[Rfam]
RNA: Plastid-ndhJ 3UTR RNA
Organism: Gossypium hirsutum
RNA sequence: UUGCGAACUUUGUAUCGCGCACAUCACUUAGAUGAACUCUAGAGAGUCACAUCGAAG
Numbered sequence: 001u002u003g004c005g006a007a008c009u010u011u012g013u014a015u016c017g018c019g020c021a022c023a024u025c026a027c028u029u030a031g032a033u034g035a036a037c038u039c040u041a042g043a044g045a046g047u048c049a050c051a052u053c054g055a056a057g
Base pairs, nucleotide, nucleotide: 019037022034023033024032025031